A member of the RNA family "mir-2040 microRNA precursor family" from Nematostella vectensis, 81 nucleotides long.
It scores 52 bits against the family's covariance model.
RNA sequence: GACGCCAGGACCACCUUCAGGGCAGUUACGAGACGAACGAGGAGCGCUCGUGUCGUAGCUGACCUGAAGGUGGUAGGUAUC
Numbered sequence: 001g002a003c004g005c006c007a008g009g010a011c012c013a014c015c016u017u018c019a020g021g022g023c024a025g026u027u028a029c030g031a032g033a034c035g036a037a038c039g040a041g042g043a044g045c046g047c048u049c050g051u052g053u054c055g056u057a058g059c060u061g062a063c064c065u066g067a068a069g070g071u072g073g074u075a076g077g078u079a080u081c
Stems, first nucleotide, its partner, number of pairs: 001081002004078003010074002013071009023061003027057005033051004038046002